Rfam assigns this 74-nucleotide RNA sequence from Clostridium thermosuccinogenes to the family "Fluoride riboswitch aptamer (crcB RNA motif)". A search with the family's covariance model found it, with a score of 48 bits.

RNA sequence: UGUUUUACAGGGAAUGAAGUUCUCCCAUGGGUAAAUCCCUAAACCGCUUAUAAGCUGAUGACUUCUGUGAUUUU
Numbered sequence: 001u002g003u004u005u006u007a008c009a010g011g012g013a014a015u016g017a018a019g020u021u022c023u024c025c026c027a028u029g030g031g032u033a034a035a036u037c038c039c040u041a042a043a044c045c046g047c048u049u050a051u052a053a054g055c056u057g058a059u060g061a062c063u064u065c066u067g068u069g070a071u072u073u074u
Stems, first nucleotide, its partner, number of pairs: 010026004016065006046055003